[Rfam]
Shown here is a 55-nucleotide sequence, a member of the family "Plastid-psbA-4 3UTR RNA". Its Rfam clan is "Plastid-psbA 3UTR RNA clan".
RNA sequence: AAAUAAAAGGAGCAAUAACGCCCUUCUUGUUCUAGCAAGAGAGCGUUAUUGUUCC
Numbered sequence: 001a002a003a004u005a006a007a008a009g010g011a012g013c014a015a016u017a018a019c020g021c022c023c024u025u026c027u028u029g030u031u032c033u034a035g036c037a038a039g040a041g042a043g044c045g046u047u048a049u050u051g052u053u054c055c
Stems, first nucleotide, its partner, number of pairs: 009055009021043001024041006
Rfam's curators write: Plastid psbA-4 is a non-coding RNA (ncRNA) present in plastids. The family's consensus secondary structure was predicted with LocARNA.